[Rfam]
RNA sequence: UAAAGCAGUAGAGGCGCACCAAUGAACAGUAGACGUGUUGAUGUAUAAGGGUACAUGUGAGAGACGUUAAAAGGCAAAGGUGCCGAAGUGAAUACCACCCAGUAUGGUAGGAUCUGGUUAAAUGGUUAAUAGCCUUUUAACUGUCAUAAGUUUUAUACUUAUGGAGUGCUACUUGUGAU
Numbered sequence: 001u002a003a004a005g006c007a008g009u010a011g012a013g014g015c016g017c018a019c020c021a022a023u024g025a026a027c028a029g030u031a032g033a034c035g036u037g038u039u040g041a042u043g044u045a046u047a048a049g050g051g052u053a054c055a056u057g058u059g060a061g062a063g064a065c066g067u068u069a070a071a072a073g074g075c076a077a078a079g080g081u082g083c084c085g086a087a088g089u090g091a092a093u094a095c096c097a098c099c100c101a102g103u104a105u106g107g108u109a110g111g112a113u114c115u116g117g118u119u120a121a122a123u124g125g126u127u128a129a130u131a132g133c134c135u136u137u138u139a140a141c142u143g144u145c146a147u148a149a150g151u152u153u154u155a156u157a158c159u160u161a162u163g164g165a166g167u168g169c170u171a172c173u174u175g176u177g178a179u
Stems, first nucleotide, its partner, number of pairs: 007173005016083005023076002032068005038062002087115002093109005116142007124134003144164007
Shown here is a 179-nucleotide sequence from Fusibacter sp. 3D3, a member of the family "Lysine riboswitch aptamer".